[Rfam]
RNA sequence: CUCUCAUCAAGACGGGUGGAGGGAGACGGCCCUGUGAAGCCCGGCAACCCGCCAGCAGAGCUGCUGGCAAGGUGCCAAUUCCGGCGGAACACUGUUCCGCAAGAUGAGGG
Numbered sequence: 001c002u003c004u005c006a007u008c009a010a011g012a013c014g015g016g017u018g019g020a021g022g023g024a025g026a027c028g029g030c031c032c033u034g035u036g037a038a039g040c041c042c043g044g045c046a047a048c049c050c051g052c053c054a055g056c057a058g059a060g061c062u063g064c065u066g067g068c069a070a071g072g073u074g075c076c077a078a079u080u081c082c083g084g085c086g087g088a089a090c091a092c093u094g095u096u097c098c099g100c101a102a103g104a105u106g107a108g109g110g
Stems, first nucleotide, its partner, number of pairs: 001110008014042004021032003027083003043076004048072002051068004080102001085099006

The record is a 110-nucleotide RNA sequence from Thermogemmatispora tikiterensis, which matches "SAM riboswitch aptamer (S box leader)" in Rfam. The SAM riboswitch is found upstream of a number of genes which code for proteins involved in methionine or cysteine biosynthesis in Gram-positive bacteria. Lineage of the source: Bacteria > Bacillati > Chloroflexota > Thermogemmatisporaceae > Thermogemmatispora. The base pairs follow the family's consensus structure, which is taken from published work.